RNA sequence: GUAUAAUAUUAUUGUAAAAGUCGUAUAAUUCCGAUAAUAUGGUUUGGAAGUUUCUACAUUAUCACCGUAAAUGAUAAUACUAUGGUAGCAAUUGAAUAUUCA
Numbered sequence: 001g002u003a004u005a006a007u008a009u010u011a012u013u014g015u016a017a018a019a020g021u022c023g024u025a026u027a028a029u030u031c032c033g034a035u036a037a038u039a040u041g042g043u044u045u046g047g048a049a050g051u052u053u054c055u056a057c058a059u060u061a062u063c064a065c066c067g068u069a070a071a072u073g074a075u076a077a078u079a080c081u082a083u084g085g086u087a088g089c090a091a092u093u094g095a096a097u098a099u100u101c102a
Base pairs, nucleotide, nucleotide: 020086021085022084023083024082025081029049030048031047032046033045034044058078059077060076061075062074063073064072